Nucleotides: 092
Stems, first nucleotide, its partner, number of pairs: 002091009012081026039054001
Number, partner (000 for none) and nucleotide at each position: 001000c002091u003090a004089a005088a006087a007086u008085u009084a010083g011000c012081c013080a014079c015078u016077u017076g018075u019074c020073a021072u022071u023070u024069u025068c026067u027066a028065a029064u030063u031062g032061g033060u034059u035058c036057u037056u038000a039054g040000u041000g042000u043000g044000u045000u046000g047000a048000a049000a050000a051000u052000u053000u054039u055000c056037a057036a058035g059034a060033a061032c062031c063030a064029a065028u066027u067026a068025g069024a070023a071022a072021a073020u074019g075018a076017u077016a078015a079014g080013u081012g082000a083010c084009u085008a086007g087006u088005u089004u090003u091002g092000g